The record is a 110-nucleotide RNA from Pseudescherichia vulneris, which matches "ArcZ RNA" in Rfam. Rfam links the family to the GO terms regulation of translation and protein binding. The literature on the family includes a 2001 paper in Curr Biol by Argaman et al., "Novel small RNA-encoding genes in the intergenic regions of Escherichia coli". The match comes from Rfam's covariance-model search (84 bits). The base pairs follow the family's consensus structure, which was predicted with PFOLD. The organism belongs to Pseudescherichia vulneris, within Bacteria.

RNA sequence: GGGCUUGACACUCUUUCCGCCUGUGCCCAUUGAAUAACCAACCCUAAAAAUACCGGCACGGCCACAAUUUCCCUGGUGUUGGCGCAGUAUUCGCGCACCCCGGUCUAUCC
Numbered sequence: 001g002g003g004c005u006u007g008a009c010a011c012u013c014u015u016u017c018c019g020c021c022u023g024u025g026c027c028c029a030u031u032g033a034a035u036a037a038c039c040a041a042c043c044c045u046a047a048a049a050a051u052a053c054c055g056g057c058a059c060g061g062c063c064a065c066a067a068u069u070u071c072c073c074u075g076g077u078g079u080u081g082g083c084g085c086a087g088u089a090u091u092c093g094c095g096c097a098c099c100c101c102g103g104u105c106u107a108u109c110c
Base pairs, nucleotide, nucleotide: 019062020061021060023059024058025057026056027055075099076098077097082096083095084094085093